[Rfam]
RNA sequence: GGUGAUAAAGUAUGCCGUGUAAUAGACGCAGCGGACGCGGGGGCAGUACCCGCCGGCUCCACCAAAAGCCCUGAGCGAUCAGGGUCUCUGACGGGGCCGAACCAGGAUCGACGUGUGUUCAAAGACGGUGUUUUUGCCCGGCCCGAGUAAGCCGUGAAACUGUUCAAAACCUACAAGUGCCAACGAUAACGAGGCUCUUGCUCUUGCUGCGUAA
Numbered sequence: 001g002g003u004g005a006u007a008a009a010g011u012a013u014g015c016c017g018u019g020u021a022a023u024a025g026a027c028g029c030a031g032c033g034g035a036c037g038c039g040g041g042g043g044c045a046g047u048a049c050c051c052g053c054c055g056g057c058u059c060c061a062c063c064a065a066a067a068g069c070c071c072u073g074a075g076c077g078a079u080c081a082g083g084g085u086c087u088c089u090g091a092c093g094g095g096g097c098c099g100a101a102c103c104a105g106g107a108u109c110g111a112c113g114u115g116u117g118u119u120c121a122a123a124g125a126c127g128g129u130g131u132u133u134u135u136g137c138c139c140g141g142c143c144c145g146a147g148u149a150a151g152c153c154g155u156g157a158a159a160c161u162g163u164u165c166a167a168a169a170c171c172u173a174c175a176a177g178u179g180c181c182a183a184c185g186a187u188a189a190c191g192a193g194g195c196u197c198u199u200g201c202u203c204u205u206g207c208u209g210c211g212u213a214a
Stems, first nucleotide, its partner, number of pairs: 001138005015128004027117003031114003037053005054099007139154004
Dot-bracket structure: (((((.........((((........(((.(((...(((((.......)))))(((((((................................)))))))............)))))).......)))).....)))))((((........))))............................................................
Rfam assigns this 214-nucleotide RNA sequence from Sphingobium phenoxybenzoativorans to the family "permuted transfer-messenger RNA". A reference for the family is Williams and Bartel (1996), "Phylogenetic analysis of tmRNA secondary structure", RNA. It scores 137 bits against the family's covariance model. The organism belongs to Sphingobium, within Bacteria. The family's RNA type in Rfam is non-coding RNA gene.